[Rfam]
RNA: TPP riboswitch aptamer (THI element)
Organism: Desulfuromonadales bacterium
RNA sequence: GCGCACAGCUGGGGGAGUUUCGACUGAGAGCGGCACAGCCGCGACCCUUCGUACCUGAUCCGGGUAAUGCCGGCGUAGGAAAGCACGAAUGCUCACUC
Numbered sequence: 001g002c003g004c005a006c007a008g009c010u011g012g013g014g015g016a017g018u019u020u021c022g023a024c025u026g027a028g029a030g031c032g033g034c035a036c037a038g039c040c041g042c043g044a045c046c047c048u049u050c051g052u053a054c055c056u057g058a059u060c061c062g063g064g065u066a067a068u069g070c071c072g073g074c075g076u077a078g079g080a081a082a083g084c085a086c087g088a089a090u091g092c093u094c095a096c097u098c
Stems, first nucleotide, its partner, number of pairs: 008084003011048004017024002031041004054079004060073004